[Rfam]
Record summary
Rfam assigns this 71-nucleotide RNA from Salmo trutta to the family "miR-430 microRNA precursor family". Rfam links the family to the GO terms RISC complex and miRNA-mediated post-transcriptional gene silencing. The family's consensus secondary structure was predicted with RNAalifold.

RNA sequence: AAUUCUACUUCAACUUGAGCACCUUUCUUUUAUCACACUGCAGAAAGUGCUAUUAAGUUGGAGUAUGAUUC
Dot-bracket structure: ...(.((((((.(((.(((((.((.(((.............))).)))))).).).)).)))))).)....